[Rfam]
RNA sequence: CUUGAACGCUAGGGGUGCUGGCCAUCGCAAGAGGGCCGGCUGAGAUAACACCCUGGAACUUGAUCAAGGUAAUACUUGCGCAGGGAAGCGUGAUGAAAAUGCC
Numbered sequence: 001c002u003u004g005a006a007c008g009c010u011a012g013g014g015g016u017g018c019u020g021g022c023c024a025u026c027g028c029a030a031g032a033g034g035g036c037c038g039g040c041u042g043a044g045a046u047a048a049c050a051c052c053c054u055g056g057a058a059c060u061u062g063a064u065c066a067a068g069g070u071a072a073u074a075c076u077u078g079c080g081c082a083g084g085g086a087a088g089c090g091u092g093a094u095g096a097a098a099a100u101g102c103c
Base pairs, nucleotide, nucleotide: 006091007090008089009088010087011054012053013052014051016048017040018039019038020037021036022035023034059084060083061082062081065078066077067076068075
Shown here is a 103-nucleotide sequence from Burkholderiales bacterium PBB4, a member of the family "TPP riboswitch aptamer (THI element)". It scores 62 bits against the family's covariance model. Taxonomically the source falls in Burkholderiales (Bacteria, Pseudomonadati, Pseudomonadota, Betaproteobacteria). Vitamin B(1) in its active form thiamin pyrophosphate (TPP) is an essential coenzyme that is synthesised by coupling of pyrimidine and thiazole moieties in bacteria. The previously detected thiamin-regulatory element, thi box was extended, resulting in a new, highly conserved RNA secondary structure, the THI element, which is widely distributed in eubacteria and also occurs in some archaea. Analysis of operon structures identified a large number of new candidate thiamin-regulated genes, mostly transporters, in various prokaryotic organisms. The THI element is a riboswitch that directly binds to TPP to regulate gene expression through a variety of mechanisms in archaea, bacteria and eukaryotes. through a variety of mechanisms in archaea, bacteria and eukaryotes. Tandem TPP riboswitches have been reported where both TPP riboswitches respond independently to TPP. The structure of TPP riboswitch has been reported for Escherichia coli and Arabidopsis thaliana.